[Rfam]
This 499-nucleotide part of an RNA from Coccomyxa sp. Obi belongs to the Rfam family "Archaeal large subunit ribosomal RNA". Lineage of the source: Eukaryota > Viridiplantae > Chlorophyta > Coccomyxaceae > Coccomyxa. Its family is annotated with structural constituent of ribosome and ribosome in the Gene Ontology. For this family Rfam cites "Crystal structure of the ribosome at 5.5 A resolution" (Yusupov et al., Science, 2001).
RNA sequence: UUCUGCGAAACCCAUUUAGGUGGGGCGUAAAAUAGAUUCUCUCCUCAAAUAAAUUGCACCUGCAAUGCUCCAUAAUAGAGUUGAGAACAGGAAUGGUGGGGGGGGUAGAGCACUCCAUGGGAAAGGGUGGCCCAAAGCCUUACCGAUUCCAAGGAAACUCCGAAUACCCUUACCAAUCUUUUACAGACAGGCUUUGGGUGCAAAGGUCCAAAGCCGAGAGGGAAACAGCCCAGAUCGUACGCUAAGGUCUCCAAGAGACAACUAAGUGGGAAAGGAAGUUUCUGGGCAAAGACAACCAGGAGGUGGGCUUGGAAGCAGCCAUCCUUUGAAGAAAGCGUAAUAGCUCACUGGUCUAGCCCAGAUGCGCCGAAAAUGUCACGAGGCUCAAGUUGUCCACCGAAGCGACGGCUUCUGCUAGAACAGCAGAAGAGUAGCAGAACGUCCUGUAAAUUAUUGAAGGCAAGCUGUCAAGCUUGCAAGAGAUAUCAGGAGUGAGAAU
Numbered sequence: 001u002u003c004u005g006c007g008a009a010a011c012c013c014a015u016u017u018a019g020g021u022g023g024g025g026c027g028u029a030a031a032a033u034a035g036a037u038u039c040u041c042u043c044c045u046c047a048a049a050u051a052a053a054u055u056g057c058a059c060c061u062g063c064a065a066u067g068c069u070c071c072a073u074a075a076u077a078g079a080g081u082u083g084a085g086a087a088c089a090g091g092a093a094u095g096g097u098g099g100g101g102g103g104g105g106u107a108g109a110g111c112a113c114u115c116c117a118u119g120g121g122a123a124a125g126g127g128u129g130g131c132c133c134a135a136a137g138c139c140u141u142a143c144c145g146a147u148u149c150c151a152a153g154g155a156a157a158c159u160c161c162g163a164a165u166a167c168c169c170u171u172a173c174c175a176a177u178c179u180u181u182u183a184c185a186g187a188c189a190g191g192c193u194u195u196g197g198g199u200g201c202a203a204a205g206g207u208c209c210a211a212a213g214c215c216g217a218g219a220g221g222g223a224a225a226c227a228g229c230c231c232a233g234a235u236c237g238u239a240c241g242c243u244a245a246g247g248u249c250u251c252c253a254a255g256a257g258a259c260a261a262c263u264a265a266g267u268g269g270g271a272a273a274g275g276a277a278g279u280u281u282c283u284g285g286g287c288a289a290a291g292a293c294a295a296c297c298a299g300g301a302g303g304u305g306g307g308c309u310u311g312g313a314a315g316c317a318g319c320c321a322u323c324c325u326u327u328g329a330a331g332a333a334a335g336c337g338u339a340a341u342a343g344c345u346c347a348c349u350g351g352u353c354u355a356g357c358c359c360a361g362a363u364g365c366g367c368c369g370a371a372a373a374u375g376u377c378a379c380g381a382g383g384c385u386c387a388a389g390u391u392g393u394c395c396a397c398c399g400a401a402g403c404g405a406c407g408g409c410u411u412c413u414g415c416u417a418g419a420a421c422a423g424c425a426g427a428a429g430a431g432u433a434g435c436a437g438a439a440c441g442u443c444c445u446g447u448a449a450a451u452u453a454u455u456g457a458a459g460g461c462a463a464g465c466u467g468u469c470a471a472g473c474u475u476g477c478a479a480g481a482g483a484u485a486u487c488a489g490g491a492g493u494g495a496g497a498a499u
Stems, first nucleotide, its partner, number of pairs: 001439006011080001082186001083184001085182003096173007108161001109159002115154002118151005126144003129139003190215009220231003235408004240404003246398003255395001257394006274368002278365002281362007295352005301325003306320003326330001331346001335344002409429007440494001442491005448486001450484003460477007